[Rfam]
RNA sequence: AUAAUAGAACACCAAAAUGUCGUAUUCUGACAUGGUUGCGAAGGGAGUAUCGCUCCCUUCAUUUU
Numbered sequence: 001a002u003a004a005u006a007g008a009a010c011a012c013c014a015a016a017a018u019g020u021c022g023u024a025u026u027c028u029g030a031c032a033u034g035g036u037u038g039c040g041a042a043g044g045g046a047g048u049a050u051c052g053c054u055c056c057c058u059u060c061a062u063u064u065u
Stems, first nucleotide, its partner, number of pairs: 002034002006028004011023002040060008
RNA: STnc290 Hfq binding RNA